[Rfam]
Shown here is a 104-nucleotide RNA from Brachionus plicatilis, a member of the family "Vault RNA". This family of RNAs are found as part of the enigmatic vault ribonucleoprotein complex. The complex consists of a major vault protein (MVP), two minor vault proteins (VPARP and TEP1), and several small untranslated RNA molecules. It has been suggested that the vault complex is involved in drug resistance. Pairs were carried over by alignment from the consensus structure, which is taken from published work.
RNA sequence: GAGUCAGCUUAGUAAAGCACUUACUUCGGUUAAAAAAAUUUCUUCAGACAAAUUUAAUUUGGGUUCGAAUCCCAUAACAAGUGUUAACGCAACCUGACUUUUUU
Numbered sequence: 001g002a003g004u005c006a007g008c009u010u011a012g013u014a015a016a017g018c019a020c021u022u023a024c025u026u027c028g029g030u031u032a033a034a035a036a037a038a039u040u041u042c043u044u045c046a047g048a049c050a051a052a053u054u055u056a057a058u059u060u061g062g063g064u065u066c067g068a069a070u071c072c073c074a075u076a077a078c079a080a081g082u083g084u085u086a087a088c089g090c091a092a093c094c095u096g097a098c099u100u101u102u103u104u
Base pairs, nucleotide, nucleotide: 002099003098004097005096006095007094012088013087015085017084018083019082020081025069026068027067028066029065